[Rfam]
Nucleotides: 113
Base pairs, nucleotide, nucleotide: 008099009098010097011064012063013062014061017041018040019039020038021037048058049057050056069094070093071092072091075088076087077086078085
Number, partner (000 for none) and nucleotide at each position: 001000u002000u003000c004000u005000a006000a007000c008099u009098c010097c011064g012063c013062g014061g015000g016000a017041g018040c019039c020038u021037g022000c023000g024000c025000g026000a027000u028000c029000u030000g031000u032000u033000g034000a035000u036000c037021c038020a039019g040018g041017c042000u043000g044000a045000g046000a047000g048058g049057g050056c051000u052000u053000c054000g055000u056050g057049c058048c059000g060000a061014c062013c063012g064011c065000c066000a067000c068000a069094c070093c071092u072091g073000a074000u075088g076087c077086g078085g079000g080000u081000c082000a083000u084000g085078c086077c087076g088075c089000c090000g091072u092071a093070g094069g095000a096000a097010g098009g099008a100000a101000a102000g103000u104000g105000c106000c107000c108000u109000g110000a111000u112000g113000c
The record is a 113-nucleotide sequence from Glutamicibacter creatinolyticus, which matches "TPP riboswitch aptamer (THI element)" in Rfam.
Lineage of the source: Bacteria > Actinomycetes > Micrococcales > Micrococcaceae > Glutamicibacter.
Vitamin B(1) in its active form thiamin pyrophosphate (TPP) is an essential coenzyme that is synthesised by coupling of pyrimidine and thiazole moieties in bacteria.
Rfam links the family to the GO term thiamine pyrophosphate binding.